[Rfam]
RNA sequence: GGAUGACACGAUGACUAUGAUAGGUUUCCCUAUUGGUUUGAUGGCCGAAAUGAUGGCUCAUUGCUUUGUAUUAGCUCUAUCUGAUCAUUC
Numbered sequence: 001g002g003a004u005g006a007c008a009c010g011a012u013g014a015c016u017a018u019g020a021u022a023g024g025u026u027u028c029c030c031u032a033u034u035g036g037u038u039u040g041a042u043g044g045c046c047g048a049a050a051u052g053a054u055g056g057c058u059c060a061u062u063g064c065u066u067u068g069u070a071u072u073a074g075c076u077c078u079a080u081c082u083g084a085u086c087a088u089u090c
Base pairs, nucleotide, nucleotide: 002089003088004087005086040059043058044057045056046055
The record is a 90-nucleotide sequence from Jatropha curcas, which matches "Small nucleolar RNA Z102/R77" in Rfam. Its Rfam clan is "SNORD44 clan". It is annotated as a C/D-box small nucleolar RNA. Its family is annotated with nucleolus and RNA processing in the Gene Ontology. The base pairs follow the family's consensus structure, which was predicted with PFOLD. The source organism's lineage runs through Eukaryota, Tracheophyta, Mesangiospermae, Jatropheae and Jatropha.